[Rfam]
RNA sequence: AGGCUAAUGGACGACGUGAUUGGGCUAUUGAUCUACAUUUGUGGGUUAAAAGCCCAGGAAAGUCCCCGGGCCCAUAAUGCAGAGAUGCGAGCUCGGAAACGGGUUAAGCUUCCAUCGAUGAUCCACGUUGGCUGAGACAUGUGUGGAGCUAUGUGGAUCUAAAGACGGAAGCUAAAUUGGCCGAUUUGAACAGUUAUUCACGUGGUCACGAGUGACUAACUUAACGGGGCUUACGAUCCGUUAGCC
Numbered sequence: 001a002g003g004c005u006a007a008u009g010g011a012c013g014a015c016g017u018g019a020u021u022g023g024g025c026u027a028u029u030g031a032u033c034u035a036c037a038u039u040u041g042u043g044g045g046u047u048a049a050a051a052g053c054c055c056a057g058g059a060a061a062g063u064c065c066c067c068g069g070g071c072c073c074a075u076a077a078u079g080c081a082g083a084g085a086u087g088c089g090a091g092c093u094c095g096g097a098a099a100c101g102g103g104u105u106a107a108g109c110u111u112c113c114a115u116c117g118a119u120g121a122u123c124c125a126c127g128u129u130g131g132c133u134g135a136g137a138c139a140u141g142u143g144u145g146g147a148g149c150u151a152u153g154u155g156g157a158u159c160u161a162a163a164g165a166c167g168g169a170a171g172c173u174a175a176a177u178u179g180g181c182c183g184a185u186u187u188g189a190a191c192a193g194u195u196a197u198u199c200a201c202g203u204g205g206u207c208a209c210g211a212g213u214g215a216c217u218a219a220c221u222u223a224a225c226g227g228g229g230c231u232u233a234c235g236a237u238c239c240g241u242u243a244g245c246c
Stems, first nucleotide, its partner, number of pairs: 002246010014203006022055004031046006060232003064229004078089004090105006107173003115162001117160001123156004129151004139144001205216004
Dot-bracket structure: .((((((((((..((((((..((((.....((((((....)))))).....))))....[[[.[[[[..........((((....))))((((((....)))))).(((.....(.(.....((((..((((......(....)...)))).))))...).)........)))........................)))))).((((....)))).........]]]]]]]....))))))))))

This 246-nucleotide RNA sequence from Centaurea solstitialis belongs to the Rfam family "RNase MRP". A search with the family's covariance model found it, with a score of 92 bits. Lineage of the source: Eukaryota > Streptophyta > Mesangiospermae > campanulids > Centaurea.